This 175-nucleotide RNA from Roseospira goensis belongs to the Rfam family "Group II catalytic intron D1-D4-3". Gene Ontology term of the family: Group II intron splicing. A search with the family's covariance model found it, with a score of 132 bits.
[Rfam]
RNA sequence: GUCGCCGCGAGGCGGGGUCUGAAGGAAGCUGUAAGCAAAGUCCUGGCCCGACGAACAGGAACCGCAUACGAGGCGCCGAGACCCUGGGCGAGGGGGCCAGAAGACCCGAAGCCCGAUGUCACCCGGAGGGUCUGGGCGUAGAUGCGGCGGGUAUGUGGGACGAAGGUCGCGCGUC
Numbered sequence: 001g002u003c004g005c006c007g008c009g010a011g012g013c014g015g016g017g018u019c020u021g022a023a024g025g026a027a028g029c030u031g032u033a034a035g036c037a038a039a040g041u042c043c044u045g046g047c048c049c050g051a052c053g054a055a056c057a058g059g060a061a062c063c064g065c066a067u068a069c070g071a072g073g074c075g076c077c078g079a080g081a082c083c084c085u086g087g088g089c090g091a092g093g094g095g096g097c098c099a100g101a102a103g104a105c106c107c108g109a110a111g112c113c114c115g116a117u118g119u120c121a122c123c124c125g126g127a128g129g130g131u132c133u134g135g136g137c138g139u140a141g142a143u144g145c146g147g148c149g150g151g152u153a154u155g156u157g158g159g160a161c162g163a164a165g166g167u168c169g170c171g172c173g174u175c
Base pairs, nucleotide, nucleotide: 002015003014004013005012006011028175030173031172032171035167036166040161041160042159043158044157045156046152047151048150049149050148062147063146064145065144066143067142073139074138075137077135079133080132081131082130083129086114087113088112089111092107093106094105